[Rfam]
RNA sequence: GGGGAUGUAGCUCAAUUGGUAGAGUACUAAAUCAGCAUUUUAGAGGUACAGGGUUUGAUUCCUCGCAUCUCCA
Numbered sequence: 001g002g003g004g005a006u007g008u009a010g011c012u013c014a015a016u017u018g019g020u021a022g023a024g025u026a027c028u029a030a031a032u033c034a035g036c037a038u039u040u041u042a043g044a045g046g047u048a049c050a051g052g053g054u055u056u057g058a059u060u061c062c063u064c065g066c067a068u069c070u071c072c073a
Base pairs, nucleotide, nucleotide: 001072002071003070004069005068006067007066010025011024012023013022027043028042029041030040031039049065051063052062053061
Rfam assigns this 73-nucleotide sequence from Digitaria exilis to the family "tRNA". Lineage of the source: Eukaryota > Euphyllophyta > Magnoliopsida > Liliopsida > Digitaria. Pairs were carried over by alignment from the consensus structure, which is taken from published work. By type it is a transfer RNA. The match comes from Rfam's covariance-model search (50 bits).